Description:
This 75-nucleotide RNA from Haemonchus placei belongs to the Rfam family "mir-5928 microRNA precursor family".
RNA sequence: GGCCCAAAUUUAAAGUAGAGUAGAUUAGAAGGAGCAUCUGACCCUACUUAACUACUUUACUUUGAGUUUAUGCUC
Numbered sequence: 001g002g003c004c005c006a007a008a009u010u011u012a013a014a015g016u017a018g019a020g021u022a023g024a025u026u027a028g029a030a031g032g033a034g035c036a037u038c039u040g041a042c043c044c045u046a047c048u049u050a051a052c053u054a055c056u057u058u059a060c061u062u063u064g065a066g067u068u069u070a071u072g073c074u075c
Base pairs, nucleotide, nucleotide: 001074002073003072006069007068008067009066011064012063013062014061015060016059017058018057019056020055021054022053023052025050027048028047030045032043035040

The source organism's lineage runs through Eukaryota, Metazoa, Rhabditida, Rhabditina and Haemonchus.